Rfam assigns this 145-nucleotide RNA from bacterium 1XD42-8 to the family "FMN riboswitch aptamer (RFN element)". Rfam links the family to the GO term FMN binding. The family's consensus secondary structure is taken from published work.

RNA sequence: GAAAUUCUUCGGGGUCGGGUGUAAUUCCCAACCGGCGGUGAUGCUGCCAUAAGGCAGACAAGUCCGAGACCCAUAUUAGUAAUAGUAUGGUUGAUUUGGUACAAAUCCAAAACCGACAGUAAAGUCUGGAUGAAUGAAGAAAACU
Numbered sequence: 001g002a003a004a005u006u007c008u009u010c011g012g013g014g015u016c017g018g019g020u021g022u023a024a025u026u027c028c029c030a031a032c033c034g035g036c037g038g039u040g041a042u043g044c045u046g047c048c049a050u051a052a053g054g055c056a057g058a059c060a061a062g063u064c065c066g067a068g069a070c071c072c073a074u075a076u077u078a079g080u081a082a083u084a085g086u087a088u089g090g091u092u093g094a095u096u097u098g099g100u101a102c103a104a105a106u107c108c109a110a111a112a113c114c115g116a117c118a119g120u121a122a123a124g125u126c127u128g129g130a131u132g133a134a135u136g137a138a139g140a141a142a143a144c145u
Stems, first nucleotide, its partner, number of pairs: 005141006017029003031125002033115002036066003062113002071090002095111005117128003